[Rfam]
RNA: Glycine riboswitch aptamer
Organism: Rossellomorea marisflavi
RNA sequence: CUCUGGAGAGCGUCCCGGAUGGGGACCACCAAAGGGGAAAGCCGUAUGAAUCGGUAAACUUUCAGGUGCCAGGACAGAG
Dot-bracket structure: (((((......((((.......)))).(((.(..(((....(..........).....))))..))).......)))))
Numbered sequence: 001c002u003c004u005g006g007a008g009a010g011c012g013u014c015c016c017g018g019a020u021g022g023g024g025a026c027c028a029c030c031a032a033a034g035g036g037g038a039a040a041g042c043c044g045u046a047u048g049a050a051u052c053g054g055u056a057a058a059c060u061u062u063c064a065g066g067u068g069c070c071a072g073g074a075c076a077g078a079g
Stems, first nucleotide, its partner, number of pairs: 001079005012026004028067003032062001035061003042053001